[Rfam]
RNA sequence: UGCUGCCGCUGGAUGAGUGAUCGGCGGUUAGCGUAUUUUAGCUCACUCACAUUUGGAGACAUACCAUGUCAUUAAGCGCUGCUCAAAAAGCACAAAUCGUUGCUGAAUACGCUGUUAAAGCG
Numbered sequence: 001u002g003c004u005g006c007c008g009c010u011g012g013a014u015g016a017g018u019g020a021u022c023g024g025c026g027g028u029u030a031g032c033g034u035a036u037u038u039u040a041g042c043u044c045a046c047u048c049a050c051a052u053u054u055g056g057a058g059a060c061a062u063a064c065c066a067u068g069u070c071a072u073u074a075a076g077c078g079c080u081g082c083u084c085a086a087a088a089a090g091c092a093c094a095a096a097u098c099g100u101u102g103c104u105g106a107a108u109a110c111g112c113u114g115u116u117a118a119a120g121c122g
Base pairs, nucleotide, nucleotide: 007026008025009024010023011022012021052076053075054074055073056072058070
The record is a 122-nucleotide sequence from Alishewanella agri, which matches "Ribosomal S15 leader" in Rfam.
The family is grouped with related families in Rfam's "Ribosomal Protein S15 Leader clan".
The literature on the family includes a 1996 paper in Biochimie by Benard et al., "Pseudoknot and translational control in the expression of the S15 ribosomal protein".
Rfam classes the family as a cis-regulatory leader.
The source organism's lineage runs through Bacteria, Pseudomonadota, Alteromonadales, Alteromonadaceae and Alishewanella agri.